[Rfam]
RNA sequence: GACCUUGCCACUUGGCAAAAGAUGACGAACGCUCAAAAGGACGCUGGUAGGCCGGUAACGGUUCGAACGCUUCCGAGUAAGGCAAAGCAGACAC
Number, nucleotide and partner (000 for none) at each position: 001g000002a000003c000004c000005u000006u017007g016008c015009c014010a000011c000012u000013u000014g009015g008016c007017a006018a000019a000020a000021g000022a000023u000024g000025a000026c000027g000028a000029a000030c000031g000032c000033u000034c000035a000036a000037a000038a000039g000040g000041a071042c000043g070044c069045u000046g000047g000048u000049a000050g064051g000052c000053c060054g059055g000056u000057a000058a000059c054060g053061g000062u000063u000064c050065g000066a000067a000068c000069g044070c043071u041072u000073c000074c000075g000076a000077g000078u000079a000080a000081g000082g000083c000084a000085a000086a000087g000088c000089a000090g000091a000092c000093a000094c000
About this RNA: A member of the RNA family "RT-17 RNA" from Phocaeicola massiliensis, 94 nucleotides long. By type it is a small RNA. NCBI's taxonomy places the organism under Bacteria, Pseudomonadati, Bacteroidales, Phocaeicola, Phocaeicola massiliensis.